[Rfam]
RNA sequence: UCGCCUUAAACUAAUGAGUAAGGAAAACAAAGCGGGUGGUGAGAACUGGCCGCAGCACCCAUAAUGUAACACAAAAGUGGUGCGAGUCAUUUUUGGAGGGGUUAUAGGCUGAAAAAAAAAAAAUUUAUCUUUCGCCGUUGCUCUUGACCUU
Numbered sequence: 001u002c003g004c005c006u007u008a009a010a011c012u013a014a015u016g017a018g019u020a021a022g023g024a025a026a027a028c029a030a031a032g033c034g035g036g037u038g039g040u041g042a043g044a045a046c047u048g049g050c051c052g053c054a055g056c057a058c059c060c061a062u063a064a065u066g067u068a069a070c071a072c073a074a075a076a077g078u079g080g081u082g083c084g085a086g087u088c089a090u091u092u093u094u095g096g097a098g099g100g101g102u103u104a105u106a107g108g109c110u111g112a113a114a115a116a117a118a119a120a121a122a123a124u125u126u127a128u129c130u131u132u133c134g135c136c137g138u139u140g141c142u143c144u145u146g147a148c149c150u151u
Stems, first nucleotide, its partner, number of pairs: 004023005032053004037048003055083004098151005105146004109140001111135001114132003118128001120126001
The family of this 151-nucleotide RNA sequence from Phtheirospermum japonicum is "U12 minor spliceosomal RNA". Rfam 15.1 lists 2,106 matches to the family in 1,170 species. It is annotated as a spliceosomal small nuclear RNA. Gene Ontology terms of the family: mRNA branch site recognition, U12 snRNP and pre-mRNA branch point binding. The organism belongs to Phtheirospermum, within Eukaryota. Clan: U2 clan.